[Rfam]
A member of the RNA family "sul1 RNA" from Pararhodobacter marinus, 58 nucleotides long.

Nucleotides: 058
Base pairs, nucleotide, nucleotide: 006026007025008024009023010022011021013018033053034052035051036050037049038048
Number, partner (000 for none) and nucleotide at each position: 001000c002000a003000c004000g005000g006026a007025u008024c009023c010022g011021g012000g013018u014000g015000c016000a017000a018013g019000c020000c021011c022010c023009g024008g025007a026006u027000g028000g029000c030000u031000a032000u033053u034052c035051c036050g037049g038048c039000c040000g041000c042000c043000g044000a045000u046000c047000c048038g049037c050036c051035g052034g053033a054000c055000a056000a057000c058000c
It scores 76 bits against the family's covariance model. The organism belongs to Pararhodobacter, within Bacteria. Rfam classes the family as a riboswitch.